About this RNA:
A member of the RNA family "Y RNA" from Aotus nancymaae, 106 nucleotides long. The organism belongs to Aotus, within Eukaryota. It scores 54 bits against the family's covariance model.
RNA sequence: GGCUGGUCUGAAGGUAGAGUUAUCUCAAUUGAUUGUUUAUGGUUAUAGACCUGAACCCUUAUUCUAUUCUUUCCCCCGCCUCACUACUUCACUUGACUAGUCUUAU
Numbered sequence: 001g002g003c004u005g006g007u008c009u010g011a012a013g014g015u016a017g018a019g020u021u022a023u024c025u026c027a028a029u030u031g032a033u034u035g036u037u038u039a040u041g042g043u044u045a046u047a048g049a050c051c052u053g054a055a056c057c058c059u060u061a062u063u064c065u066a067u068u069c070u071u072u073c074c075c076c077c078g079c080c081u082c083a084c085u086a087c088u089u090c091a092c093u094u095g096a097c098u099a100g101u102c103u104u105a106u
Base pairs, nucleotide, nucleotide: 001102002101003100004099005098006097007096008095010094011093014090016085017084018081019080027068028067029066031064032063